Rfam assigns this 165-nucleotide sequence from Neobacillus cucumis to the family "glmS glucosamine-6-phosphate activated ribozyme aptamer".
RNA sequence: AGGAAAUUAAAAGCGCCUGAACUAAUCAAAGAGGUUGAUUAGUUGACGAGGAGGAGGAGUAUCGAAUGUUCGGCGGAUACCUCCCGGUUGCAAGUGCACAACCGAAAAUUUCUUCUUUAAAACACAGAGGCAACUUUGUGCACAAAGAGAAGAAAAUGCGCAUAC
Numbered sequence: 001a002g003g004a005a006a007u008u009a010a011a012a013g014c015g016c017c018u019g020a021a022c023u024a025a026u027c028a029a030a031g032a033g034g035u036u037g038a039u040u041a042g043u044u045g046a047c048g049a050g051g052a053g054g055a056g057g058a059g060u061a062u063c064g065a066a067u068g069u070u071c072g073g074c075g076g077a078u079a080c081c082u083c084c085c086g087g088u089u090g091c092a093a094g095u096g097c098a099c100a101a102c103c104g105a106a107a108a109u110u111u112c113u114u115c116u117u118u119a120a121a122a123c124a125c126a127g128a129g130g131c132a133a134c135u136u137u138g139u140g141c142a143c144a145a146a147g148a149g150a151a152g153a154a155a156a157u158g159c160g161c162a163u164a165c
Stems, first nucleotide, its partner, number of pairs: 020044008029035001053084005062073004085104006109155007123140007